[Rfam]
RNA sequence: UUGCUGGAGCUGGUAAAAUGGAACCAGAUCAACUAACCAACGGAUUUGGUCCCCUUCAACCAGCUUGAGCUA
Numbered sequence: 001u002u003g004c005u006g007g008a009g010c011u012g013g014u015a016a017a018a019u020g021g022a023a024c025c026a027g028a029u030c031a032a033c034u035a036a037c038c039a040a041c042g043g044a045u046u047u048g049g050u051c052c053c054c055u056u057c058a059a060c061c062a063g064c065u066u067g068a069g070c071u072a
Stems, first nucleotide, its partner, number of pairs: 003070003008065007017056002020052003024049007

Description
This 72-nucleotide sequence from Petromyzon marinus belongs to the Rfam family "mir-133 microRNA precursor family". It is one of the family's seed sequences. The family's consensus secondary structure was predicted with PFOLD. From the family's description: mir-133 was first experimentally characterised in mouse and homologues have since been discovered in several other species. Taxonomically the source falls in Petromyzon (Eukaryota, Bilateria, Chordata, Vertebrata). For this family Rfam cites "Identification of tissue-specific microRNAs from mouse" (Lagos-Quintana et al., Curr Biol, 2002).